Rfam assigns this 169-nucleotide RNA from Paenactinomyces guangxiensis to the family "Group II catalytic intron D1-D4-3".
RNA sequence: CCCGCCGUGAGGCGGAGACUGAAAGAAGCCAGCGGCAAAUCUCCGGUCUGAGGAACACGAACCUCAUAUAAGGUUAGCAUUCGUUGGAUAAGUCUGCUCAACAAGACAAAGUCCUUGCUACCAAAAGCGAAUGAGAGUGAGGCAGAUAGAUGGAGUGAAAGACUGCGCU
Numbered sequence: 001c002c003c004g005c006c007g008u009g010a011g012g013c014g015g016a017g018a019c020u021g022a023a024a025g026a027a028g029c030c031a032g033c034g035g036c037a038a039a040u041c042u043c044c045g046g047u048c049u050g051a052g053g054a055a056c057a058c059g060a061a062c063c064u065c066a067u068a069u070a071a072g073g074u075u076a077g078c079a080u081u082c083g084u085u086g087g088a089u090a091a092g093u094c095u096g097c098u099c100a101a102c103a104a105g106a107c108a109a110a111g112u113c114c115u116u117g118c119u120a121c122c123a124a125a126a127g128c129g130a131a132u133g134a135g136a137g138u139g140a141g142g143c144a145g146a147u148a149g150a151u152g153g154a155g156u157g158a159a160a161g162a163c164u165g166c167g168c169u
Base pairs, nucleotide, nucleotide: 002015003014004013005012006011028169030167036161041155042154043153044152045151046147047146048145049144050143062142063141064140065139066138067137075135078133079132080131081130082129083128084127086114087113088112089111092107093106094105095104
Dot-bracket structure: .(((((....)))))............(.(.....(....((((((((((...........((((((.......(..(((((((.((((..((((........))))...))))............))))))).).)))))))))))...))))).....).....).)